RNA sequence: UACUAACAAACCCUAUCUCCACCUCCACGUGGUGAUCGCUGGGAGUUUUUUCUUUAUGAAAAACUGCAGACGGAGAAGG
Numbered sequence: 001u002a003c004u005a006a007c008a009a010a011c012c013c014u015a016u017c018u019c020c021a022c023c024u025c026c027a028c029g030u031g032g033u034g035a036u037c038g039c040u041g042g043g044a045g046u047u048u049u050u051u052c053u054u055u056a057u058g059a060a061a062a063a064c065u066g067c068a069g070a071c072g073g074a075g076a077a078g079g
Stems, first nucleotide, its partner, number of pairs: 012079003016075001018073002021033003044065007052058001
A member of the RNA family "drz-agam-1 ribozyme" from Hermetia illucens, 79 nucleotides long. The literature on the family includes a 2009 paper in Science by Webb et al., "Widespread occurrence of self-cleaving ribozymes". Taxonomically the source falls in Hermetia (Eukaryota, Metazoa, Bilateria, Protostomia). Gene Ontology term of the family: catalytic activity.